[Rfam]
Notes:
The family of this 85-nucleotide sequence from Oxalobacteraceae bacterium OM1 is "c-di-GMP-I riboswitch aptamer". The organism belongs to Oxalobacteraceae, within Bacteria.
RNA sequence: CUCACCGCAGGGCAAACCGGUCGAAAGGCCGGGACGCAAAGCUUCCGGCCUAACAGGGAAACCUCAUGGCAGCGGGGCCGCCUUC
Numbered sequence: 001c002u003c004a005c006c007g008c009a010g011g012g013c014a015a016a017c018c019g020g021u022c023g024a025a026a027g028g029c030c031g032g033g034a035c036g037c038a039a040a041g042c043u044u045c046c047g048g049c050c051u052a053a054c055a056g057g058g059a060a061a062c063c064u065c066a067u068g069g070c071a072g073c074g075g076g077g078c079c080g081c082c083u084u085c
Stems, first nucleotide, its partner, number of pairs: 012037002017032006041078003045075003048070003055064003